The record is a 101-nucleotide sequence from Lingula anatina, which matches "Small nucleolar RNA SNORD14" in Rfam.
The family has 18 seed sequences and 4,559 matches in Rfam 15.1.
U14 small nucleolar RNA (U14 snoRNA) is required for early cleavages of eukaryotic precursor rRNAs. In yeasts, this molecule possess a stem-loop region (known as the Y-domain) which is essential for function. A similar structure, but with a different consensus sequence, is found in plants, but is absent in vertebrates.
It scores 65 bits against the family's covariance model.
Rfam classes the family as a C/D-box small nucleolar RNA.
For this family Rfam cites "An essential domain in Saccharomyces cerevisiae U14 snoRNA is absent in vertebrates, but conserved in other yeasts" (Samarsky et al., Nucleic Acids Res, 1996).
Pairs were carried over by alignment from the consensus structure, which was predicted with PFOLD.
The organism belongs to Lingula, within Eukaryota.
[Rfam]
RNA sequence: UGGCUGUGAUGAAGACUUUUUGCCACCAUUCGCGGUUUCCACCAGAGACGAUCUUUUGAUUGUUGAAGAUGGUCCUAGUCCUUCCUUGGAAGUCUGAGCUA
Numbered sequence: 001u002g003g004c005u006g007u008g009a010u011g012a013a014g015a016c017u018u019u020u021u022g023c024c025a026c027c028a029u030u031c032g033c034g035g036u037u038u039c040c041a042c043c044a045g046a047g048a049c050g051a052u053c054u055u056u057u058g059a060u061u062g063u064u065g066a067a068g069a070u071g072g073u074c075c076u077a078g079u080c081c082u083u084c085c086u087u088g089g090a091a092g093u094c095u096g097a098g099c100u101a
Stems, first nucleotide, its partner, number of pairs: 001101004048063006